Source information: A member of the RNA family "Small nucleolar RNA SNORD113/SNORD114 family" from Mandrillus leucophaeus, 75 nucleotides long. The family's RNA type in Rfam is C/D-box small nucleolar RNA.

[Rfam]
RNA sequence: UGGACCAAUGAUGACAAUUGCCGGCGUAUGAAUGUUGGGUGAUGAAUAAUACGUGUGUAGAACUCUGAGGUCCAA
Numbered sequence: 001u002g003g004a005c006c007a008a009u010g011a012u013g014a015c016a017a018u019u020g021c022c023g024g025c026g027u028a029u030g031a032a033u034g035u036u037g038g039g040u041g042a043u044g045a046a047u048a049a050u051a052c053g054u055g056u057g058u059a060g061a062a063c064u065c066u067g068a069g070g071u072c073c074a075a
Stems, first nucleotide, its partner, number of pairs: 002073005
The source organism's lineage runs through Eukaryota, Metazoa, Dipnotetrapodomorpha, Amniota and Mandrillus.